[Rfam]
RNA sequence: AUAGUGGAUAGAGGCGCGGCGCUCAUGCGUACUGCGGGACAAGGCCAGGCAGCCGUCCCGGGGGAGAGGGUGCGCCGCCGAAGGAAGGACGGCCUGCCUGGGCCGCCGGUCCUGGGCCGUGGGAGAAGAUCCCACGGACUGUCACGAGAGUGGAGCGCUAUCCAGAGG
Numbered sequence: 001a002u003a004g005u006g007g008a009u010a011g012a013g014g015c016g017c018g019g020c021g022c023u024c025a026u027g028c029g030u031a032c033u034g035c036g037g038g039a040c041a042a043g044g045c046c047a048g049g050c051a052g053c054c055g056u057c058c059c060g061g062g063g064g065a066g067a068g069g070g071u072g073c074g075c076c077g078c079c080g081a082a083g084g085a086a087g088g089a090c091g092g093c094c095u096g097c098c099u100g101g102g103c104c105g106c107c108g109g110u111c112c113u114g115g116g117c118c119g120u121g122g123g124a125g126a127a128g129a130u131c132c133c134a135c136g137g138a139c140u141g142u143c144a145c146g147a148g149a150g151u152g153g154a155g156c157g158c159u160a161u162c163c164a165g166a167g168g
Base pairs, nucleotide, nucleotide: 006163007162008161009160010159011158016078017077018076019075020074021073022072024070032063033062035060036059037058038057039056082113083112084111085110088107090105091104092103093102114140115139117137118136119135120134121133122132123131124130142153143152144151145150
Rfam assigns this 168-nucleotide RNA sequence from Firmicutes bacterium ASF500 to the family "Lysine riboswitch aptamer".
The base pairs follow the family's consensus structure, which is taken from published work.